[Rfam]
RNA sequence: ACUGAUCAACACAACGAAAGCCCUACCUCUCUUUCGUCCUUACGGCUCCGAUGACCGCGCCAGAACGAAUUGUUCAACAAAAUAACAU
Numbered sequence: 001a002c003u004g005a006u007c008a009a010c011a012c013a014a015c016g017a018a019a020g021c022c023c024u025a026c027c028u029c030u031c032u033u034u035c036g037u038c039c040u041u042a043c044g045g046c047u048c049c050g051a052u053g054a055c056c057g058c059g060c061c062a063g064a065a066c067g068a069a070u071u072g073u074u075c076a077a078c079a080a081a082a083u084a085a086c087a088u
Stems, first nucleotide, its partner, number of pairs: 034068003039063002041059001043057003047053001
RNA: BsrC
Organism: Pullulanibacillus pueri